This 243-nucleotide sequence from Miscanthus lutarioriparius belongs to the Rfam family "Collinsella-1 RNA". The family's RNA type in Rfam is small RNA. The source organism's lineage runs through Eukaryota, Streptophytina, Magnoliopsida, commelinids and Miscanthus. The match comes from Rfam's covariance-model search (37 bits).
[Rfam]
RNA sequence: GGCGGCUGGUGUUAUAAGCCGCCCCUACAAAUCGAUUUAUAGGGGCGGCUGGGAACACCAGCCGCCUCUACAAAAUCGAUUUGUAGGGGCGGCUAUAGUACCAGCCGCCCCUAUAAUAUCUAGAUUUGUAGGGGCGGCUGGUGUUAUAAGCUGCCCCUACAAAUCGAUUUAUAGGGGCGGUUGGGAACACCAGCCGCCUCUACAAAAUCGAUUUGUAGGGGCGGCUGUAGUACCAGCCGCCCC
Dot-bracket structure: ((((.((((((((...(((((((((((............)))))))))))...)))))))).))))...............((((((.((((((........)))))).))))))..........((((((((...(((((..((.......................................))...)))))...))))))))............((((((((((......))))))))))